[Rfam]
RNA sequence: GUAAAAAGCUAAUUGCUGCAUUUUUAAAUAAAUGUAGAGGAAAGUCCGUGCUCACACUAACUGUGAUGUUAGUAGUGUUUGUGUAUGUAUAAUUAAUAAAGCAUAGCAUAGGCGUAUGACGGCGAAUUUUUUAAGCUAAGUAAUUUUCUAUUAUAUGUUUAAAAAUUCACAAAGUGCCACAGAGACGAUUAAUCAAGAAAUUGAUGAGAUGAAACGUUGGUAAACCCCACAAGUGAGAAACCUAAAUUUUGGUAAGGGAAUCUAAUUUAGUAAAUUAAGAAAUUAAAUUAGGAUAGAAUAAACUUUAUUCUAUAGAUAAAUAAUUAGCACUACAUUUUUGUAGAACAGAACACGGCUUAUUUUU
Numbered sequence: 001g002u003a004a005a006a007a008g009c010u011a012a013u014u015g016c017u018g019c020a021u022u023u024u025u026a027a028a029u030a031a032a033u034g035u036a037g038a039g040g041a042a043a044g045u046c047c048g049u050g051c052u053c054a055c056a057c058u059a060a061c062u063g064u065g066a067u068g069u070u071a072g073u074a075g076u077g078u079u080u081g082u083g084u085a086u087g088u089a090u091a092a093u094u095a096a097u098a099a100a101g102c103a104u105a106g107c108a109u110a111g112g113c114g115u116a117u118g119a120c121g122g123c124g125a126a127u128u129u130u131u132u133a134a135g136c137u138a139a140g141u142a143a144u145u146u147u148c149u150a151u152u153a154u155a156u157g158u159u160u161a162a163a164a165a166u167u168c169a170c171a172a173a174g175u176g177c178c179a180c181a182g183a184g185a186c187g188a189u190u191a192a193u194c195a196a197g198a199a200a201u202u203g204a205u206g207a208g209a210u211g212a213a214a215c216g217u218u219g220g221u222a223a224a225c226c227c228c229a230c231a232a233g234u235g236a237g238a239a240a241c242c243u244a245a246a247u248u249u250u251g252g253u254a255a256g257g258g259a260a261u262c263u264a265a266u267u268u269a270g271u272a273a274a275u276u277a278a279g280a281a282a283u284u285a286a287a288u289u290a291g292g293a294u295a296g297a298a299u300a301a302a303c304u305u306u307a308u309u310c311u312a313u314a315g316a317u318a319a320a321u322a323a324u325u326a327g328c329a330c331u332a333c334a335u336u337u338u339u340g341u342a343g344a345a346c347a348g349a350a351c352a353c354g355g356c357u358u359a360u361u362u363u364u
Stems, first nucleotide, its partner, number of pairs: 004364003007360001008328007016037006042358003046355005051237005056073006079232005084105005106120001107118004121227002124168004133160004140154005174225002176221003189208002192205005241257003261292007293313008330343005
RNA: Bacterial RNase P class B